[Rfam]
RNA sequence: CGAGGAGGCAUCCAAAGGGAUCGCAUUGAUCCCAACUCUCAUUCAUAACUUUGAUCAUUUUGUUGAAAUUGGAUCAUGCUAUCCCUUUGGAUUCCUCCUU
Number, nucleotide and partner (000 for none) at each position: 001c000002g100003a099004g098005g097006a096007g000008g094009c000010a092011u091012c090013c089014a088015a087016a086017g085018g084019g083020a082021u081022c000023g079024c078025a077026u076027u000028g075029a074030u073031c072032c071033c000034a000035a000036c000037u068038c000039u000040c000041a000042u000043u000044c000045a000046u000047a000048a000049c000050u000051u000052u000053g000054a000055u000056c000057a000058u000059u000060u000061u000062g000063u000064u000065g000066a000067a000068a037069u000070u000071g032072g031073a030074u029075c028076a026077u025078g024079c023080u000081a021082u020083c019084c018085c017086u016087u015088u014089g013090g012091a011092u010093u000094c008095c000096u006097c005098c004099u003100u002
A member of the RNA family "mir-393 microRNA precursor family" from Tetracentron sinense, 100 nucleotides long. The base pairs follow the family's consensus structure. The match comes from Rfam's covariance-model search (93 bits).